RNA: Histone 3' UTR stem-loop
Organism: Plasmodium falciparum
RNA sequence: UUUAAGGCUUCACUAGAAGCCAUUAUAUAUAAUAUACACAUAUAUA
Numbered sequence: 001u002u003u004a005a006g007g008c009u010u011c012a013c014u015a016g017a018a019g020c021c022a023u024u025a026u027a028u029a030u031a032a033u034a035u036a037c038a039c040a041u042a043u044a045u046a
Stems, first nucleotide, its partner, number of pairs: 006021006